[Rfam]
RNA sequence: CUAGUUUGCCUACUUCCCGUUCACUCUUCAGCUCAAUUGUUGAUCAGAAACGAGUGACUGAGGCAGUGGAUGAGAAGGAAGACUAG
Numbered sequence: 001c002u003a004g005u006u007u008g009c010c011u012a013c014u015u016c017c018c019g020u021u022c023a024c025u026c027u028u029c030a031g032c033u034c035a036a037u038u039g040u041u042g043a044u045c046a047g048a049a050a051c052g053a054g055u056g057a058c059u060g061a062g063g064c065a066g067u068g069g070a071u072g073a074g075a076a077g078g079a080a081g082a083c084u085a086g
Base pairs, nucleotide, nucleotide: 001086002085003084004083005082006081009078010077011076015075016074018072019071020070022068023067024066025065027062028061030059033057034056035055037053038052039051040050
RNA: mir-2238 microRNA precursor family